[Rfam]
This 98-nucleotide sequence from Cetobacterium somerae belongs to the Rfam family "Purine riboswitch aptamer". The family's consensus secondary structure is taken from published work. Rfam's curators write: Riboswitches are metabolite binding domains within certain messenger RNAs that serve as precision sensors for their corresponding targets. Allosteric rearrangement of mRNA structure is mediated by ligand binding, and this results in modulation of gene expression. A class of riboswitches that selectively recognises guanine and becomes saturated at concentrations as low as 5 nM. In Bacillus subtilis, this mRNA motif is located on at least five separate transcriptional units that together encode 17 genes that are mostly involved in purine transport and purine nucleotide biosynthesis.
RNA sequence: AUAGUCUGUAUUUUUAUCACUGAUAUAAUCCUGUAAUAAGGUCAGGAGUUUCUACAAGCCACCGUAAAUGGCUUAUUAUUAGGAGGAGUAAUGGAAAA
Numbered sequence: 001a002u003a004g005u006c007u008g009u010a011u012u013u014u015u016a017u018c019a020c021u022g023a024u025a026u027a028a029u030c031c032u033g034u035a036a037u038a039a040g041g042u043c044a045g046g047a048g049u050u051u052c053u054a055c056a057a058g059c060c061a062c063c064g065u066a067a068a069u070g071g072c073u074u075a076u077u078a079u080u081a082g083g084a085g086g087a088g089u090a091a092u093g094g095a096a097a098a
Base pairs, nucleotide, nucleotide: 020082021081022080023079024078025077029047030046031045032044033043056074057073058072059071060070061069